Background
Rfam assigns this 46-nucleotide RNA from Bythopirellula polymerisocia to the family "Acido-Lenti-1 RNA". NCBI's taxonomy places the organism under Bacteria, Planctomycetota, Planctomycetia, Lacipirellulaceae, Bythopirellula. Rfam classes the family as a small RNA.
RNA sequence: CCAGGGAUUGACAUCCCUGGCUAUUAACUGGCACCACUUCGUGGUU
Numbered sequence: 001c002c003a004g005g006g007a008u009u010g011a012c013a014u015c016c017c018u019g020g021c022u023a024u025u026a027a028c029u030g031g032c033a034c035c036a037c038u039u040c041g042u043g044g045u046u
Stems, first nucleotide, its partner, number of pairs: 001020008033045005